Overview:
Rfam assigns this 65-nucleotide sequence to the family "S15-Flavobacteria ribosomal protein leader". It is annotated as a cis-regulatory leader. The literature on the family includes a 2020 paper in BMC Microbiol by Eckert and Weinberg, "Discovery of 20 novel ribosomal leader candidates in bacteria and archaea".

[Rfam]
RNA sequence: UAUAUUUGCCGCUUGAUACGAAAGACGUAUCGUGCAUAAAAAUCAUUUACAUAAAUAUUGGAAUG
Numbered sequence: 001u002a003u004a005u006u007u008g009c010c011g012c013u014u015g016a017u018a019c020g021a022a023a024g025a026c027g028u029a030u031c032g033u034g035c036a037u038a039a040a041a042a043u044c045a046u047u048u049a050c051a052u053a054a055a056u057a058u059u060g061g062a063a064u065g
Stems, first nucleotide, its partner, number of pairs: 014032006
Dot-bracket structure: .............((((((.......)))))).................................